A member of the RNA family "Small nucleolar RNA SNORA1" from Fukomys damarensis, 123 nucleotides long. By type it is an H/ACA-box small nucleolar RNA. The match comes from Rfam's covariance-model search (92 bits). The family has 29 seed sequences and 1,282 matches in Rfam 15.1. Rfam describes the family as follows. ACA1 is a member of the H/ACA class of snoRNA that guide the sites of modification of uridines to pseudouridines.

[Rfam]
RNA sequence: AGCCUCAUUCUAGAUUAGAAUGGGGGUGUCCAAAACUGGUCAGUAUGGCUAAAAUUGAGACACAAUUCAUGCUUCCAUCACAAUAAAUGUAUUCCAGUGGUGACAAUGAGGCCUCUAACAUUC
Numbered sequence: 001a002g003c004c005u006c007a008u009u010c011u012a013g014a015u016u017a018g019a020a021u022g023g024g025g026g027u028g029u030c031c032a033a034a035a036c037u038g039g040u041c042a043g044u045a046u047g048g049c050u051a052a053a054a055u056u057g058a059g060a061c062a063c064a065a066u067u068c069a070u071g072c073u074u075c076c077a078u079c080a081c082a083a084u085a086a087a088u089g090u091a092u093u094c095c096a097g098u099g100g101u102g103a104c105a106a107u108g109a110g111g112c113c114u115c116u117a118a119c120a121u122u123c
Base pairs, nucleotide, nucleotide: 002049003048004047007044008043021032022031023030024029062116064114076102077101078100079099080098081097

The family's consensus secondary structure was predicted with PFOLD.